[Rfam]
RNA sequence: GUGGAACAAUUUGAGUUGAUCUUUCUCUAUUCUGAUACUGGUCAAAUUAUUGUUCCUAAAUGAUAGAGAAGUUUGAUGUCUCUCUCACGUCGUAUCAGGAGGUGAAUAGAGCUUCAGUCUUCCCACAUUU
Numbered sequence: 001g002u003g004g005a006a007c008a009a010u011u012u013g014a015g016u017u018g019a020u021c022u023u024u025c026u027c028u029a030u031u032c033u034g035a036u037a038c039u040g041g042u043c044a045a046a047u048u049a050u051u052g053u054u055c056c057u058a059a060a061u062g063a064u065a066g067a068g069a070a071g072u073u074u075g076a077u078g079u080c081u082c083u084c085u086c087a088c089g090u091c092g093u094a095u096c097a098g099g100a101g102g103u104g105a106a107u108a109g110a111g112c113u114u115c116a117g118u119c120u121u122c123c124c125a126c127a128u129u130u
Stems, first nucleotide, its partner, number of pairs: 003056008016045006024035002068122002071120001073116001
Description: Caenorhabditis snoRNA ceN59: a 130-nucleotide RNA sequence from Auanema sp. JU1783. The family's consensus secondary structure was predicted with WAR. It is annotated as an H/ACA-box small nucleolar RNA. On this family, see Jia et al., BMC Mol Biol 2007: "Systematic identification of non-coding RNA 2,2,7-trimethylguanosine cap structures in Caenorhabditis elegans". A search with the family's covariance model found it, with a score of 52 bits.